The family of this 192-nucleotide sequence is "U2 spliceosomal RNA". It is one of the family's seed sequences. Pairs were carried over by alignment from the consensus structure, which is taken from published work. From the family's description: U2 is a small nuclear RNA (snRNA) component of the spliceosome (involved in pre-mRNA splicing). Complementary binding between U2 snRNA (in an area lying towards the 5' end but 3' to hairpin I) and the branchpoint sequence (BPS) of the intron results the bulging out of an unpaired adenosine, on the BPS, which initiates a nucleophilic attack at the intronic 5' splice site, thus starting the first of two transesterification reactions that mediate splicing.
RNA sequence: AUCGCUUCUCGGCCUAAUGGCUAAGAUCAAGUGUAGUAUCUGUUCUUAUCAGUUUAAUAUCUGGUACGCCGGGCAUAGCCUGGCUCAUAUAUUAAUCUGAUUUUUAGCAUUCGAUCAAGGGAGCGAGGUUUACCUCACCCUGAUCACGGGUUGCCUCGGCAUUGCACUACAGCCGAGUGCGGCCCACUUUUA
Dot-bracket structure: ......(((.((((....)))).)))....................((((((........)))))).(((((((...)))))))............................(((((.((....((((....)))).)).)))))..((((((.((((((...........))))))..)))))).......